[Rfam]
RNA sequence: UGGCACCCAAUGUGGGGCCUGGAUACUGGGGGACACUCUGAGGGACAUGACGGAAGAAGAAGGGGUGCACACCCGCUCAAAUAGUUCGGAGACAUCGUGGUAGCCUGCUGUGACCGAGCUGAGAGGUAAGUUGGUCAUUAAUCAUGGGGCAAGAAUUAAGUCAGCAUCAGAAAUAUGUGAUACAGCUAAGAGAAGCUUUACAGGCAAGAGGAGUAAAGGUUACAACUGAGGAUUUAUUUCAUUUCUUUGAUUUUGUGAAAGACAUCUGCCCAU
Number, nucleotide and partner (000 for none) at each position: 001u000002g000003g000004c000005a000006c031007c030008c029009a000010a000011u000012g026013u025014g024015g000016g000017g000018c000019c000020u000021g000022g000023a000024u014025a013026c012027u000028g000029g008030g007031g006032g000033a000034c000035a000036c000037u049038c000039u047040g000041a000042g000043g000044g000045a000046c000047a039048u000049g037050a000051c000052g000053g000054a000055a000056g000057a000058a000059g000060a000061a000062g000063g000064g000065g000066u000067g000068c000069a000070c000071a000072c000073c000074c000075g000076c000077u000078c000079a000080a000081a000082u000083a000084g127085u126086u123087c000088g000089g000090a000091g000092a000093c000094a000095u000096c112097g111098u110099g109100g108101u000102a000103g000104c000105c000106u000107g000108c100109u099110g098111u097112g096113a000114c000115c000116g000117a000118g000119c000120u000121g000122a000123g086124a000125g000126g085127u084128a000129a000130g000131u152132u151133g000134g150135u149136c000137a000138u147139u146140a145141a000142u000143c000144a000145u140146g139147g138148g000149g135150c134151a132152a131153g000154a000155a000156u000157u200158a199159a198160g196161u195162c000163a000164g000165c000166a000167u000168c000169a000170g000171a000172a000173a000174u000175a000176u000177g000178u000179g000180a000181u000182a000183c000184a000185g000186c000187u000188a000189a000190g000191a000192g000193a000194a000195g161196c160197u000198u159199u158200a157201c000202a000203g000204g000205c000206a000207a000208g248209a247210g246211g245212a244213g243214u000215a000216a000217a235218g234219g233220u232221u231222a000223c000224a000225a000226c000227u000228g000229a000230g000231g221232a220233u219234u218235u217236a000237u000238u000239u000240c000241a000242u000243u213244u212245c211246u210247u209248u208249g000250a000251u000252u000253u000254u000255g000256u000257g000258a273259a000260a000261g270262a000263c268264a000265u000266c000267u000268g263269c000270c261271c000272a000273u258
The record is a 273-nucleotide RNA sequence from Nannospalax galili, which matches "Mason-Pfizer monkey virus packaging signal" in Rfam. Rfam 15.1 lists 2,921 matches to the family in 53 species. Rfam links the family to the GO term viral genome packaging. It is annotated as a cis-regulatory element. A reference for the family is Mustafa et al. (2004), "Mutational analysis of the predicted secondary RNA structure of the Mason-Pfizer monkey virus packaging signal", Virus Res. NCBI's taxonomy places the organism under Eukaryota, Mammalia, Theria, Muroidea, Nannospalax.